[Rfam]
RNA sequence: CGGGUGGUGAUGAGAAGCGCAGGGGUACGGACCUCAGCCGAAUCAUGGGGGCUGAGUGCUGCUGCAGAAACUGAUGUUGAACGUGUGGUUCUGUCAGAAUCUGCAGCAGCGCGACACAGACGCACGACUGAACCCA
Numbered sequence: 001c002g003g004g005u006g007g008u009g010a011u012g013a014g015a016a017g018c019g020c021a022g023g024g025g026u027a028c029g030g031a032c033c034u035c036a037g038c039c040g041a042a043u044c045a046u047g048g049g050g051g052c053u054g055a056g057u058g059c060u061g062c063u064g065c066a067g068a069a070a071c072u073g074a075u076g077u078u079g080a081a082c083g084u085g086u087g088g089u090u091c092u093g094u095c096a097g098a099a100u101c102u103g104c105a106g107c108a109g110c111g112c113g114a115c116a117c118a119g120a121c122g123c124a125c126g127a128c129u130g131a132a133c134c135c136a
Base pairs, nucleotide, nucleotide: 002135003134004133005132